[Rfam]
RNA sequence: AUGUGCUUACCUUUGGUGAUUUGGCUGUAUGAUAGAUGUCCUCAUAAAGCUAGGUUACCAAAGCUAAGCGCGA
Numbered sequence: 001a002u003g004u005g006c007u008u009a010c011c012u013u014u015g016g017u018g019a020u021u022u023g024g025c026u027g028u029a030u031g032a033u034a035g036a037u038g039u040c041c042u043c044a045u046a047a048a049g050c051u052a053g054g055u056u057a058c059c060a061a062a063g064c065u066a067a068g069c070g071c072g073a
Stems, first nucleotide, its partner, number of pairs: 002072004007067003011063016028046005

mir-9/mir-79 microRNA precursor family: a 73-nucleotide RNA from Auanema sp. JU1783. The family's consensus secondary structure was predicted with RNAalifold. Its family is annotated with miRNA-mediated post-transcriptional gene silencing and RISC complex in the Gene Ontology. Rfam 15.1 lists 5,647 matches to the family in 934 species.